[Rfam]
RNA sequence: CGUUUGUAAACCAAUCUAUCAGGGCCUCUACCGAGACCCAGAGUCCAGUUUUUGGGAACCUCCCACGCUUGGGGGGUUA
Numbered sequence: 001c002g003u004u005u006g007u008a009a010a011c012c013a014a015u016c017u018a019u020c021a022g023g024g025c026c027u028c029u030a031c032c033g034a035g036a037c038c039c040a041g042a043g044u045c046c047a048g049u050u051u052u053u054g055g056g057a058a059c060c061u062c063c064c065a066c067g068c069u070u071g072g073g074g075g076g077u078u079a
Stems, first nucleotide, its partner, number of pairs: 022039003026035003057078009